RNA sequence: AGCUUUUACGAGGUACCAGCACUUUUCUUUCAUUAGGGGGAAGGAGUGAGGAAAGGACCAAACAGCAGCAGACUUUUAAAACUUUUAAGUACAGGCAGGUCUGAGUGCCUGGACCUGCCUUUUCAUUUUACUUCACCCUCUAAGGAGUUCGAUCAGUUGGCGUGCCUACUUCACUUCUUUUAAGAGAAAGAGUAAGUUUGUUGUUUUG
Numbered sequence: 001a002g003c004u005u006u007u008a009c010g011a012g013g014u015a016c017c018a019g020c021a022c023u024u025u026u027c028u029u030u031c032a033u034u035a036g037g038g039g040g041a042a043g044g045a046g047u048g049a050g051g052a053a054a055g056g057a058c059c060a061a062a063c064a065g066c067a068g069c070a071g072a073c074u075u076u077u078a079a080a081a082c083u084u085u086u087a088a089g090u091a092c093a094g095g096c097a098g099g100u101c102u103g104a105g106u107g108c109c110u111g112g113a114c115c116u117g118c119c120u121u122u123u124c125a126u127u128u129u130a131c132u133u134c135a136c137c138c139u140c141u142a143a144g145g146a147g148u149u150c151g152a153u154c155a156g157u158u159g160g161c162g163u164g165c166c167u168a169c170u171u172c173a174c175u176u177c178u179u180u181u182a183a184g185a186g187a188a189a190g191a192g193u194a195a196g197u198u199u200g201u202u203g204u205u206u207u208g
Stems, first nucleotide, its partner, number of pairs: 002020003007015003029147003033143007040134004048127002051124001053123003070102006103118001105116001107114001156204002159201001162199001164197002169190003172186001174184003
RNA: Connexin-43 internal ribosome entry site (IRES)